[Rfam]
RNA sequence: ACGCACGAUGCGGGAGAGCUCGAUACGUCGAGCACCGAAGGAGCAAGCCUCCCCGCCAAUCUCUCAGGUCUCAUACCGCAUCGAUCUG
Numbered sequence: 001a002c003g004c005a006c007g008a009u010g011c012g013g014g015a016g017a018g019c020u021c022g023a024u025a026c027g028u029c030g031a032g033c034a035c036c037g038a039a040g041g042a043g044c045a046a047g048c049c050u051c052c053c054c055g056c057c058a059a060u061c062u063c064u065c066a067g068g069u070c071u072c073a074u075a076c077c078g079c080a081u082c083g084a085u086c087u088g
Stems, first nucleotide, its partner, number of pairs: 006083008019032004034069003037065002041063003047056002
This 88-nucleotide RNA from Paramicrobacterium agarici belongs to the Rfam family "Glycine riboswitch aptamer". Lineage of the source: Bacteria > Bacillati > Actinomycetes > Microbacteriaceae > Paramicrobacterium. It scores 62 bits against the family's covariance model.